[Rfam]
RNA sequence: UUCCUAACUGAGGACGCAAGUUCUUAGCUGACAGUGGGAAGUAGGGUCAAACUGAUUGCUCACUGCAGAAAGCUGAAGGUGUAGGUAGCACUUCGACUCUUCAGAGUGAGGCCAUGGGAGUAGUGCUUAAAUCACAUGGCAA
Numbered sequence: 001u002u003c004c005u006a007a008c009u010g011a012g013g014a015c016g017c018a019a020g021u022u023c024u025u026a027g028c029u030g031a032c033a034g035u036g037g038g039a040a041g042u043a044g045g046g047u048c049a050a051a052c053u054g055a056u057u058g059c060u061c062a063c064u065g066c067a068g069a070a071a072g073c074u075g076a077a078g079g080u081g082u083a084g085g086u087a088g089c090a091c092u093u094c095g096a097c098u099c100u101u102c103a104g105a106g107u108g109a110g111g112c113c114a115u116g117g118g119a120g121u122a123g124u125g126c127u128u129a130a131a132u133c134a135c136a137u138g139g140c141a142a
Stems, first nucleotide, its partner, number of pairs: 008027007028068003032065002035062004040057001045052001073104007088126005111140006118133002
RNA: IMES-2 RNA motif